[Rfam]
RNA sequence: UAUGGGAUUGCCGAAAACCAUUAUUAGAGUAGGCG
Dot-bracket structure: .((((....[[[.....))))..........]]].
Numbered sequence: 001u002a003u004g005g006g007a008u009u010g011c012c013g014a015a016a017a018c019c020a021u022u023a024u025u026a027g028a029g030u031a032g033g034c035g
Stems, first nucleotide, its partner, number of pairs: 002021004010034003
Shown here is a 35-nucleotide sequence from [Flexibacter] sp. ATCC 35208, a member of the family "DUF805b RNA". Lineage of the source: Bacteria > Pseudomonadati > Chitinophagia > Chitinophagales > Chitinophaga. Clan: DUF805 clan. The family's RNA type in Rfam is cis-regulatory element.